[Rfam]
The record is a 100-nucleotide sequence from Monilinia laxa, which matches "Small nucleolar RNA Z13/snr52" in Rfam. The family's consensus secondary structure was predicted with PFOLD. Lineage of the source: Eukaryota > Fungi > Dikarya > saccharomyceta > Monilinia. By type it is a C/D-box small nucleolar RNA.
RNA sequence: AACUUUUAAAUGACGAAAUAUUUCGGAUGUUAAAUCAUAUUGUCCCCGAGAGCGCAAAACCGUGUGGAGAUUUUCCGUUGCCUUCCUUCUGAUUAUAGAU
Numbered sequence: 001a002a003c004u005u006u007u008a009a010a011u012g013a014c015g016a017a018a019u020a021u022u023u024c025g026g027a028u029g030u031u032a033a034a035u036c037a038u039a040u041u042g043u044c045c046c047c048g049a050g051a052g053c054g055c056a057a058a059a060c061c062g063u064g065u066g067g068a069g070a071u072u073u074u075c076c077g078u079u080g081c082c083u084u085c086c087u088u089c090u091g092a093u094u095a096u097a098g099a100u
Stems, first nucleotide, its partner, number of pairs: 004098002024077004